This 90-nucleotide sequence from Mikania micrantha belongs to the Rfam family "Small nucleolar RNA R16". The match comes from Rfam's covariance-model search (53 bits). A reference for the family is Galardi et al. (2002), "Purified box C/D snoRNPs are able to reproduce site-specific 2'-O-methylation of target RNA in vitro", Mol Cell Biol. The base pairs follow the family's consensus structure, which was predicted with PFOLD. Taxonomically the source falls in Mikania (Eukaryota, Spermatophyta, Magnoliopsida, Eupatorieae). Its family is annotated with RNA processing and nucleolus in the Gene Ontology. By type it is a C/D-box small nucleolar RNA.
[Rfam]
RNA sequence: AAUGGCAGAUGAUGAUGAUAAAUCUGUUUUAUGCUUAACACUCUGAUUAAACCGUGGUGAUUUAAACUCCGCUUAUUAUCUGAUGCUAUU
Numbered sequence: 001a002a003u004g005g006c007a008g009a010u011g012a013u014g015a016u017g018a019u020a021a022a023u024c025u026g027u028u029u030u031a032u033g034c035u036u037a038a039c040a041c042u043c044u045g046a047u048u049a050a051a052c053c054g055u056g057g058u059g060a061u062u063u064a065a066a067c068u069c070c071g072c073u074u075a076u077u078a079u080c081u082g083a084u085g086c087u088a089u090u
Stems, first nucleotide, its partner, number of pairs: 003088005